The record is a 124-nucleotide sequence, which matches "LOOT RNA" in Rfam. By type it is a small RNA.

RNA sequence: AGCCCAACCGCCGUAUCUAAUACGAUGAGUGGUUCUAAAAACUAACGAAAGCAAACACCUCCUCGUGAGGGUGCUUUCGUUAGUCGUAUUUAGGAAUAGGUACGGGCUCGGCUAAGGUCGGGUC
Number, nucleotide and partner (000 for none) at each position: 001a034002g033003c032004c031005c000006a000007a000008c000009c027010g026011c000012c024013g023014u022015a021016u000017c000018u000019a000020a000021u015022a014023c013024g012025a000026u010027g009028a000029g000030u000031g004032g003033u002034u001035c000036u000037a000038a000039a000040a000041a000042c083043u082044a081045a080046c079047g078048a077049a076050a075051g074052c073053a000054a000055a072056c071057a000058c070059c069060u068061c067062c000063u000064c000065g000066u000067g061068a060069g059070g058071g056072u055073g052074c051075u050076u049077u048078c047079g046080u045081u044082a043083g042084u000085c104086g103087u102088a101089u100090u099091u098092a097093g000094g000095a000096a000097u092098a091099g090100g089101u088102a087103c086104g085105g124106g123107c122108u121109c120110g119111g118112c117113u000114a000115a000116g000117g112118u111119c110120g109121g108122g107123u106124c105